[Rfam]
RNA: SAM riboswitch aptamer (S box leader)
Organism: Chitinophaga agri
RNA sequence: GACUUAUCCAGAAAGGCGGAGGGACUUGGCCCUGCGAUGCCUUAGCAACCAACCUGCAGAAACGUAGGGAAAGGUGCUAAUUCCGGCCCCGGUUACACAAUAACCGAGGGAAGAUAAGUU
Numbered sequence: 001g002a003c004u005u006a007u008c009c010a011g012a013a014a015g016g017c018g019g020a021g022g023g024a025c026u027u028g029g030c031c032c033u034g035c036g037a038u039g040c041c042u043u044a045g046c047a048a049c050c051a052a053c054c055u056g057c058a059g060a061a062a063c064g065u066a067g068g069g070a071a072a073g074g075u076g077c078u079a080a081u082u083c084c085g086g087c088c089c090c091g092g093u094u095a096c097a098c099a100a101u102a103a104c105c106g107a108g109g110g111a112a113g114a115u116a117a118g119u120u
Base pairs, nucleotide, nucleotide: 001120002119003118004117005116006115007114008113013043014042015041016040017039021032022031023030026086027085028084029083044078045077046076047075049074050073053068054067055066056065082112087109088108090106091105092104093103094102095101